[Rfam]
RNA sequence: AUCUUGGAUGUGAGAAUUGGAGGAAACCACAUUAUUGGUCCUCAACUUAUUGUAAAUAAUGCAAAGCUAAUGAUUUGGUUUUCUCCAAUAUCUCAUCUUCAAAAU
Numbered sequence: 001a002u003c004u005u006g007g008a009u010g011u012g013a014g015a016a017u018u019g020g021a022g023g024a025a026a027c028c029a030c031a032u033u034a035u036u037g038g039u040c041c042u043c044a045a046c047u048u049a050u051u052g053u054a055a056a057u058a059a060u061g062c063a064a065a066g067c068u069a070a071u072g073a074u075u076u077g078g079u080u081u082u083c084u085c086c087a088a089u090a091u092c093u094c095a096u097c098u099u100c101a102a103a104a105u
Base pairs, nucleotide, nucleotide: 004102005101006100007099008098011095012094013093014092016089017088018087019086020085021084023082024081025080026079027078028077029076032073033072034071035070036069037068038067

Overview: This 105-nucleotide RNA sequence from Nyssa sinensis belongs to the Rfam family "MIR2275 microRNA precursor family". The organism belongs to Nyssa, within Eukaryota. Its family is annotated with miRNA-mediated post-transcriptional gene silencing and RISC complex in the Gene Ontology.